[Rfam]
RNA: mir-133 microRNA precursor family
Organism: Bucco capensis
RNA sequence: CUGCUCUAGCUGGUUGAAGGGGACCAAACCUUCAAGGAUGAUGGGCUUGGUUCCAUUUGACCAGCCAGAGCAG
Numbered sequence: 001c002u003g004c005u006c007u008a009g010c011u012g013g014u015u016g017a018a019g020g021g022g023a024c025c026a027a028a029c030c031u032u033c034a035a036g037g038a039u040g041a042u043g044g045g046c047u048u049g050g051u052u053c054c055a056u057u058u059g060a061c062c063a064g065c066c067a068g069a070g071c072a073g
Stems, first nucleotide, its partner, number of pairs: 003071004009065010020053003024050004029045002